This 89-nucleotide sequence from Medicago truncatula belongs to the Rfam family "MIR2617 microRNA precursor family". It scores 71 bits against the family's covariance model.
Nucleotides: 089
Stems, first nucleotide, its partner, number of pairs: 002089013016076006
Number, partner (000 for none) and nucleotide at each position: 001000a002089a003088g004087u005086a006085g007084u008083g009082u010081a011080a012079c013078a014077u015000a016076c017075c018074c019073g020072u021071u022000u023000g024000g025000g026000a027000u028000a029000u030000a031000c032000u033000c034000u035000g036000a037000u038000u039000u040000a041000u042000g043000u044000u045000u046000a047000u048000u049000u050000a051000u052000u053000a054000u055000u056000u057000a058000a059000u060000u061000g062000c063000u064000u065000c066000a067000g068000g069000a070000u071021a072020a073019c074018g075017g076016g077014g078013u079012g080011u081010u082009a083008c084007a085006c086005u087004a088003u089002u
The family's consensus secondary structure was predicted with RNAalifold.